Source information: Shown here is an 89-nucleotide RNA from Laodelphax striatellus, a member of the family "mir-277 microRNA precursor family". Taxonomically the source falls in Laodelphax (Eukaryota, Bilateria, Hemiptera, Delphacidae). Rfam 15.1 lists 170 matches to the family in 166 species. Its family is annotated with miRNA-mediated post-transcriptional gene silencing and RISC complex in the Gene Ontology.

RNA sequence: UGAAUCCUGGGGUGCGUGCCAGAGGCGCAUUUACACUGUUGCCAAUUCUAUCUUGUAAAUGCACUAUCUGGUACGACAUGCCAGGGUGA
Numbered sequence: 001u002g003a004a005u006c007c008u009g010g011g012g013u014g015c016g017u018g019c020c021a022g023a024g025g026c027g028c029a030u031u032u033a034c035a036c037u038g039u040u041g042c043c044a045a046u047u048c049u050a051u052c053u054u055g056u057a058a059a060u061g062c063a064c065u066a067u068c069u070g071g072u073a074c075g076a077c078a079u080g081c082c083a084g085g086g087u088g089a
Stems, first nucleotide, its partner, number of pairs: 008083003015075009025064001027062009